[Rfam]
RNA sequence: AAACUCAGAAAAGCGACGGACAGGGUCCUUUAGUUCGUCACUUUUUUGGGUUUUU
Numbered sequence: 001a002a003a004c005u006c007a008g009a010a011a012a013g014c015g016a017c018g019g020a021c022a023g024g025g026u027c028c029u030u031u032a033g034u035u036c037g038u039c040a041c042u043u044u045u046u047u048g049g050g051u052u053u054u055u
Base pairs, nucleotide, nucleotide: 001053002052003051004050005049006048007047008046009045010044011043012042013041015039016038017037018036019035020034021033
Dot-bracket structure: (((((((((((((.(((((((...........))))))).)))))))))))))..
The family of this 55-nucleotide RNA sequence from Solanum tuberosum is "MIR8008 microRNA precursor family". Gene Ontology terms of the family: miRNA-mediated post-transcriptional gene silencing and RISC complex. The organism belongs to Solanum, within Eukaryota.